Overview:
Rfam assigns this 78-nucleotide RNA sequence from Ornithorhynchus anatinus to the family "Small nucleolar RNA SNORD121A". The base pairs follow the family's consensus structure, which was predicted with WAR. Its family is annotated with RNA processing and nucleolus in the Gene Ontology. The source organism's lineage runs through Eukaryota, Chordata, Gnathostomata, Teleostomi and Ornithorhynchus. The family's RNA type in Rfam is C/D-box small nucleolar RNA. Rfam 15.1 lists 881 matches to the family in 444 species.
[Rfam]
RNA sequence: CCGAGAAAGACAAUGAUGCCUGAUUUCCAAGCACAUAUCUGACCUAAUUUGAGGAGAACUCAAGACUGAGUCUUUCGG
Numbered sequence: 001c002c003g004a005g006a007a008a009g010a011c012a013a014u015g016a017u018g019c020c021u022g023a024u025u026u027c028c029a030a031g032c033a034c035a036u037a038u039c040u041g042a043c044c045u046a047a048u049u050u051g052a053g054g055a056g057a058a059c060u061c062a063a064g065a066c067u068g069a070g071u072c073u074u075u076c077g078g
Stems, first nucleotide, its partner, number of pairs: 001078004008073004